RNA: FMN riboswitch aptamer (RFN element)
Organism: Lentibacillus cibarius
RNA sequence: UUCCAUCUUCGGGGCAGGGUGCAAUUCCCGACCGACGGUAAGAAGCAGUAUGCUGUUUUAAGUCCGUGACCCGUUUGCAUGAAUGCAGCGGUGGACCCGGUGUGAGUCCGGGACCGACAGUUACAGUCUGGAUGGGAGAAGAUGACG
Number, nucleotide and partner (000 for none) at each position: 001u000002u000003c000004c144005a143006u142007c141008u140009u139010c138011g000012g000013g000014g000015c000016a000017g029018g028019g027020u000021g000022c000023a000024a000025u000026u000027c019028c018029c017030g000031a127032c126033c116034g115035a067036c066037g065038g064039u000040a000041a000042g000043a000044a000045g000046c000047a000048g000049u000050a000051u000052g000053c000054u000055g000056u000057u000058u000059u000060a000061a000062g114063u113064c038065c037066g036067u035068g000069a000070c000071c091072c090073g000074u000075u000076u000077g000078c000079a000080u000081g000082a000083a000084u000085g000086c000087a000088g000089c000090g072091g071092u000093g000094g000095a000096c112097c111098c110099g109100g108101u000102g000103u000104g000105a000106g000107u000108c100109c099110g098111g097112g096113a063114c062115c034116g033117a000118c130119a129120g128121u000122u000123a000124c000125a000126g032127u031128c120129u119130g118131g000132a000133u000134g000135g000136g000137a000138g010139a009140a008141g007142a006143u005144g004145a000146c000147g000